[Rfam]
RNA: Fluoride riboswitch aptamer (crcB RNA motif)
Organism: Flavobacterium silvisoli
RNA sequence: ACCACAAUAGGAAAUGGUGUUCUUCCUAACCCAACCGCCCUAAAAAGCUGAUGACGCCUGAUUAAAC
Numbered sequence: 001a002c003c004a005c006a007a008u009a010g011g012a013a014a015u016g017g018u019g020u021u022c023u024u025c026c027u028a029a030c031c032c033a034a035c036c037g038c039c040c041u042a043a044a045a046a047g048c049u050g051a052u053g054a055c056g057c058c059u060g061a062u063u064a065a066a067c
Stems, first nucleotide, its partner, number of pairs: 010026004016058006037048002